The family of this 142-nucleotide sequence from Caballeronia novacaledonica is "TPP riboswitch aptamer (THI element)".
[Rfam]
RNA sequence: CUGCUAACGCGGGGGUCCUGCGUUGCACAUCGCGAUCUCGAUCGGCUUUUUCGACUGAAUCGCUUCGUGCGGCGUGGGUGAGAAAUACCCUUUGAACCUGAUCUGGAUAAUGCCAGCGCAGGGAAGCGUUCGGGUUCCAUGG
Number, nucleotide and partner (000 for none) at each position: 001c000002u000003g000004c000005u000006a130007a129008c128009g127010c126011g091012g090013g089014g088015g000016u085017c078018c077019u076020g075021c074022g073023u072024u071025g070026c069027a068028c067029a000030u000031c000032g000033c000034g000035a000036u000037c000038u000039c000040g000041a000042u000043c000044g000045g000046c000047u000048u000049u000050u000051u000052c000053g000054a000055c000056u000057g000058a000059a000060u000061c000062g000063c000064u000065u000066c000067g028068u027069g026070c025071g024072g023073c022074g021075u020076g019077g018078g017079u000080g000081a000082g000083a000084a000085a016086u000087a000088c014089c013090c012091u011092u000093u000094g000095a000096a000097c122098c121099u120100g119101a000102u000103c116104u115105g114106g113107a000108u000109a000110a000111u000112g000113c106114c105115a104116g103117c000118g000119c100120a099121g098122g097123g000124a000125a000126g010127c009128g008129u007130u006131c000132g000133g000134g000135u000136u000137c000138c000139a000140u000141g000142g000

Gene Ontology term of the family: thiamine pyrophosphate binding. The match comes from Rfam's covariance-model search (60 bits).